[Rfam]
The family of this 72-nucleotide RNA sequence from Orthoflavivirus denguei is "Flavivirus DB element". By type it is a cis-regulatory element. From the family's description: This family represents the flavivirus 3' UTR elements DB1 and DB2. These DB elements are thought to be required for efficient translation. A reference for the family is Akiyama et al. (2021), "Three-dimensional structure of a flavivirus dumbbell RNA reveals molecular details of an RNA regulator of replication", Nucleic Acids Res. The base pairs follow the family's consensus structure, which is taken from published work.
RNA sequence: GGAGGCCAUGCGCCACGGAAGCUGUACGCGUGGCAUAUUGGACUAGCGGUUAGAGGAGACCCCUCCCACCAC
Numbered sequence: 001g002g003a004g005g006c007c008a009u010g011c012g013c014c015a016c017g018g019a020a021g022c023u024g025u026a027c028g029c030g031u032g033g034c035a036u037a038u039u040g041g042a043c044u045a046g047c048g049g050u051u052a053g054a055g056g057a058g059a060c061c062c063c064u065c066c067c068a069c070c071a072c
Stems, first nucleotide, its partner, number of pairs: 001066005006041002012034006018027001048061004